[Rfam]
RNA sequence: CUUGAUCGAGCCGAGCCACAGCGGGCGGUCGGCCGGACGGCCGGCGCCGUACGUGGCGAUGAGCGCCUCGGCCUC
Numbered sequence: 001c002u003u004g005a006u007c008g009a010g011c012c013g014a015g016c017c018a019c020a021g022c023g024g025g026c027g028g029u030c031g032g033c034c035g036g037a038c039g040g041c042c043g044g045c046g047c048c049g050u051a052c053g054u055g056g057c058g059a060u061g062a063g064c065g066c067c068u069c070g071g072c073c074u075c
Base pairs, nucleotide, nucleotide: 016024017023033071034070035069038065039064043060045058047056048055049054

Overview:
A member of the RNA family "ASpks TB sRNA" from Dactylosporangium vinaceum, 75 nucleotides long. For this family Rfam cites "Identification of small RNAs in Mycobacterium tuberculosis" (Arnvig and Young, Mol Microbiol, 2009). The match comes from Rfam's covariance-model search (63 bits). By type it is an antisense RNA.